[Rfam]
Nucleotides: 080
Base pairs, nucleotide, nucleotide: 012037013036017032018031019030020029021028022027040074041073042072043071045070046069047068048065049064050063051062052061053060
Number, partner (000 for none) and nucleotide at each position: 001000a002000g003000u004000u005000g006000a007000u008000a009000a010000a011000g012037c013036c014000a015000c016000a017032g018031u019030c020029g021028u022027c023000g024000c025000g026000a027022g028021g029020c030019g031018g032017u033000g034000u035000c036013g037012g038000a039000a040074a041073a042072c043071c044000a045070c046069g047068g048065g049064u050063c051062u052061c053060u054000g055000a056000u057000g058000g059000g060053a061052g062051a063050g064049a065048u066000a067000g068047c069046c070045g071043g072042g073041u074040u075000a076000c077000c078000u079000g080000c

The family of this 80-nucleotide sequence from Candidatus Electrothrix aarhusensis is "c-di-GMP-I riboswitch aptamer". Its family is annotated with cyclic-di-GMP binding in the Gene Ontology. Lineage of the source: Bacteria > Pseudomonadati > Thermodesulfobacteriota > Desulfobulbia > Candidatus Electrothrix. The base pairs follow the family's consensus structure, which is taken from published work.